[Rfam]
The record is a 579-nucleotide part of an RNA from Candidatus Nitrosotalea sp. TS, which matches "Archaeal small subunit ribosomal RNA" in Rfam.
RNA sequence: UGGCGGGGGAGCACCACAAGGGGUGAAGCCUGCGGUUCAAUUGGAGUCAACGCCAGGAAUCUUACCCGGGGAGACAGCAGAAUGAAGGUCAAGCUGAAGACUUUACCAGACAAGCUGAGAGGAGGUGCAUGGCCGUCGCCAGCUCGUGCCGUGAGGUGUCCUGUUAAGUCAGGUAACGAGCGAGAUCCCUGCUCUUAGUUGCCACAGCUAUUCUCAGGAAAAGCUGGGCUAACUAGGAGGACCGCCACUGCUGAAGUGGAGGAAGGAGGGGGCCACGGCAGGUCAGUAUGCCCCGAAACCCUGGGGCUACACGCGGGCUGCAAUGAUAAUGACAACGGGUCCCGAAGCUGAAAAGUGGAGGCAAUCCUUAAACAUUAUCUCAGUUAUGACUGAGGGCUGUAACUCGCCCUCACGAAUAUGGAAUCCCUAGUAACCGCGCGUCACAAUCGCGCAGUGAAUACGUCCCUGCUCCUUGCACACACCGCCCGUCGCUUCAUCGAAGUUGGGUUUGUGCGAGGUGAUGACUCAAUUGUCAUCAUCGAACACGAGUUUAGCAACGAGGGAGAAGUCGUAACAAGG
Numbered sequence: 001u002g003g004c005g006g007g008g009g010a011g012c013a014c015c016a017c018a019a020g021g022g023g024u025g026a027a028g029c030c031u032g033c034g035g036u037u038c039a040a041u042u043g044g045a046g047u048c049a050a051c052g053c054c055a056g057g058a059a060u061c062u063u064a065c066c067c068g069g070g071g072a073g074a075c076a077g078c079a080g081a082a083u084g085a086a087g088g089u090c091a092a093g094c095u096g097a098a099g100a101c102u103u104u105a106c107c108a109g110a111c112a113a114g115c116u117g118a119g120a121g122g123a124g125g126u127g128c129a130u131g132g133c134c135g136u137c138g139c140c141a142g143c144u145c146g147u148g149c150c151g152u153g154a155g156g157u158g159u160c161c162u163g164u165u166a167a168g169u170c171a172g173g174u175a176a177c178g179a180g181c182g183a184g185a186u187c188c189c190u191g192c193u194c195u196u197a198g199u200u201g202c203c204a205c206a207g208c209u210a211u212u213c214u215c216a217g218g219a220a221a222a223g224c225u226g227g228g229c230u231a232a233c234u235a236g237g238a239g240g241a242c243c244g245c246c247a248c249u250g251c252u253g254a255a256g257u258g259g260a261g262g263a264a265g266g267a268g269g270g271g272g273c274c275a276c277g278g279c280a281g282g283u284c285a286g287u288a289u290g291c292c293c294c295g296a297a298a299c300c301c302u303g304g305g306g307c308u309a310c311a312c313g314c315g316g317g318c319u320g321c322a323a324u325g326a327u328a329a330u331g332a333c334a335a336c337g338g339g340u341c342c343c344g345a346a347g348c349u350g351a352a353a354a355g356u357g358g359a360g361g362c363a364a365u366c367c368u369u370a371a372a373c374a375u376u377a378u379c380u381c382a383g384u385u386a387u388g389a390c391u392g393a394g395g396g397c398u399g400u401a402a403c404u405c406g407c408c409c410u411c412a413c414g415a416a417u418a419u420g421g422a423a424u425c426c427c428u429a430g431u432a433a434c435c436g437c438g439c440g441u442c443a444c445a446a447u448c449g450c451g452c453a454g455u456g457a458a459u460a461c462g463u464c465c466c467u468g469c470u471c472c473u474u475g476c477a478c479a480c481a482c483c484g485c486c487c488g489u490c491g492c493u494u495c496a497u498c499g500a501a502g503u504u505g506g507g508u509u510u511g512u513g514c515g516a517g518g519u520g521a522u523g524a525c526u527c528a529a530u531u532g533u534c535a536u537c538a539u540c541g542a543a544c545a546c547g548a549g550u551u552u553a554g555c556a557a558c559g560a561g562g563g564a565g566a567a568g569u570c571g572u573a574a575c576a577a578g579g
Stems, first nucleotide, its partner, number of pairs: 001479002003476003007473007016463002020427005025321001027319008035310002041056004065305007075117004080111001087107003091103003121294002124292004130288002132283003135279004142181006148157003160173004187271004192239007202228002206225003209221001211220003242262002245259005325379007337368003342361002347356003386417001391412007433455002436452005482578001484575001487571002490568001492565004497560003502555012517540009
Clan: SSU clan.
Taxonomically the source falls in Nitrosotalea (Archaea, Nitrososphaerota, Nitrososphaeria, Nitrosotaleales).